[Rfam]
RNA sequence: AUCCGUCUUCAGGGCGGGGUGGAAUUCCCCACCGGCGGUAGGCAGCGCAAGCUGCGAGCCCGCGAGCGCCCGGGCCGCGCCAGCGGUCCGGGGUCAGCAGACCCAGUCCGAUGCUGGGGCCGACGGUCAAAGUCCGGAUGAAAGAAGAUGCGC
Number, nucleotide and partner (000 for none) at each position: 001a000002u000003c000004c150005g149006u148007c147008u146009u145010c144011a000012g000013g000014g000015c000016g000017g029018g028019g027020u000021g000022g000023a000024a000025u000026u000027c019028c018029c017030c000031a133032c132033c122034g121035g063036c062037g061038g060039u000040a000041g000042g000043c000044a000045g000046c000047g000048c000049a000050a000051g000052c000053u000054g000055c000056g000057a000058g120059c119060c038061c037062g036063c035064g000065a000066g098067c097068g000069c000070c000071c000072g000073g000074g000075c000076c000077g000078c000079g000080c000081c000082a000083g000084c000085g000086g000087u000088c000089c000090g000091g000092g000093g000094u000095c000096a000097g067098c066099a000100g000101a000102c118103c117104c116105a115106g114107u000108c000109c000110g000111a000112u000113g000114c106115u105116g104117g103118g102119g059120c058121c034122g033123a000124c136125g135126g134127u000128c000129a000130a000131a000132g032133u031134c126135c125136g124137g000138a000139u000140g000141a000142a000143a000144g010145a009146a008147g007148a006149u005150g004151c000152g000153c000
The family of this 153-nucleotide RNA from Ramlibacter sp. Leaf400 is "FMN riboswitch aptamer (RFN element)". Lineage of the source: Bacteria > Betaproteobacteria > Burkholderiales > Comamonadaceae > Ramlibacter. The RFN element is a highly conserved domain that is found frequently in the 5'-untranslated regions of prokaryotic mRNAs that encode for flavin mononucleotide (FMN) biosynthesis and transport proteins. This element is a metabolite-dependent riboswitch that directly binds FMN in the absence of proteins. In Bacillus subtilis, the riboswitch most likely controls gene expression by causing premature transcription termination within the 5' untranslated region of the ribDEAHT operon and precluding access to the ribosome-binding site of ypaA mRNA.The FMN riboswitch structure, reported in present an FMN-bound six-stem junction, adopts a butterfly-like scaffold, stapled together by opposingly directed but nearly identically folded peripheral domains. The match comes from Rfam's covariance-model search (98 bits).